[Rfam]
This 107-nucleotide RNA sequence from Clostridium tyrobutyricum belongs to the Rfam family "SAM riboswitch aptamer (S box leader)". The SAM riboswitch is found upstream of a number of genes which code for proteins involved in methionine or cysteine biosynthesis in Gram-positive bacteria. The SAM riboswitch acts at the level of transcription termination control. The predicted structure consists of a complex stem-loop region followed by a single stem loop terminator region. An alternative and mutually exclusive form involves bases in the 3' segment of helix 1 with those in the 5' region of helix 5 to form a structure termed the anti-terminator form. This entry represents the conserved core of the complex structure involving helices 1-4. The family's consensus secondary structure is taken from published work. Rfam links the family to the GO term regulation of gene expression.
RNA sequence: GUCUUAUCAAGAGAGGCGGAGGGAAUGGCCCUAUGAUGCCCAGCAACCUGAAUGAAAUUUUAAUUCAAGGUGCCAAUUCCUACAGGAAUAUACCUGAAAGAUGAGAG
Dot-bracket structure: .(((((((....(.(((...(((...[[)))......)))).(((.((.((............))...)))))....(]]..((((......))))..)))))))).